[Rfam]
RNA sequence: AUGAUAAGGUUGUAUAUGCAGCCUUUUUGUGGAAGUGAACCUUCUGCUAUAAACCAUCAAAUUGCGGGAACAUCCUAAAGAAAUUUCAACCAAACAGACAUGGUAACAUAGUUUGUGGCACAGGUAAUGACUCGUGGUAAGGUAAAAUCGAAAUUUAUAAUCGAAAGAUAAUGGGUAAUCCGCAGCCAAGCACCAUGAAAAAAAAAUAAAGAACUAGAGUGUACCUUCUGCAUAAUGGGUUAAUGUUAAAUCAUUGUAAGCUAAGGAAAACUCUUUUAAACUAUGGUGUGCAGUUCAUCGACUAGAUGUUGGUUGGUGUCAAAGAAUAUUUUUAUUUGAUGCUUAAGAUAUAGUCAAGCCUCAUCCGAAAGGAUGCA
Numbered sequence: 001a002u003g004a005u006a007a008g009g010u011u012g013u014a015u016a017u018g019c020a021g022c023c024u025u026u027u028u029g030u031g032g033a034a035g036u037g038a039a040c041c042u043u044c045u046g047c048u049a050u051a052a053a054c055c056a057u058c059a060a061a062u063u064g065c066g067g068g069a070a071c072a073u074c075c076u077a078a079a080g081a082a083a084u085u086u087c088a089a090c091c092a093a094a095c096a097g098a099c100a101u102g103g104u105a106a107c108a109u110a111g112u113u114u115g116u117g118g119c120a121c122a123g124g125u126a127a128u129g130a131c132u133c134g135u136g137g138u139a140a141g142g143u144a145a146a147a148u149c150g151a152a153a154u155u156u157a158u159a160a161u162c163g164a165a166a167g168a169u170a171a172u173g174g175g176u177a178a179u180c181c182g183c184a185g186c187c188a189a190g191c192a193c194c195a196u197g198a199a200a201a202a203a204a205a206a207u208a209a210a211g212a213a214c215u216a217g218a219g220u221g222u223a224c225c226u227u228c229u230g231c232a233u234a235a236u237g238g239g240u241u242a243a244u245g246u247u248a249a250a251u252c253a254u255u256g257u258a259a260g261c262u263a264a265g266g267a268a269a270a271c272u273c274u275u276u277u278a279a280a281c282u283a284u285g286g287u288g289u290g291c292a293g294u295u296c297a298u299c300g301a302c303u304a305g306a307u308g309u310u311g312g313u314u315g316g317u318g319u320c321a322a323a324g325a326a327u328a329u330u331u332u333u334a335u336u337u338g339a340u341g342c343u344u345a346a347g348a349u350a351u352a353g354u355c356a357a358g359c360c361u362c363a364u365c366c367g368a369a370a371g372g373a374u375g376c377a
Stems, first nucleotide, its partner, number of pairs: 006025008031041002052314005058308002063184006073175003185294002190289008298356001300355005316342008362375005